[Rfam]
Shown here is a 98-nucleotide RNA sequence from Mycolicibacterium confluentis, a member of the family "Glycine riboswitch aptamer". About the family: This family represents the bacterial glycine riboswitch. The organism belongs to Mycobacterium (subgen. Mycolicibacterium), within Bacteria. A search with the family's covariance model found it, with a score of 63 bits.

RNA sequence: UCGCUCAGCGCGGGAGAGUUCCGUGGUUGCCAGCCACGGACGCCGAAGGAGCAACACCUCUCCGUCAACCUCUCAGGCCCCAGGACCGCGCCUGGCCA
Number, nucleotide and partner (000 for none) at each position: 001u000002c000003g000004c000005u000006c000007a000008g091009c090010g089011c088012g087013g086014g000015a000016g000017a000018g000019u000020u040021c039022c038023g037024u036025g035026g000027u000028u000029g000030c000031c000032a000033g000034c000035c025036a024037c023038g022039g021040a020041c000042g078043c077044c076045g074046a073047a000048g000049g072050a071051g070052c000053a000054a000055c000056a065057c064058c000059u000060c000061u000062c000063c000064g057065u056066c000067a000068a000069c000070c051071u050072c049073u046074c045075a000076g044077g043078c042079c000080c000081c000082a000083g000084g000085a000086c013087c012088g011089c010090g009091c008092c000093u000094g000095g000096c000097c000098a000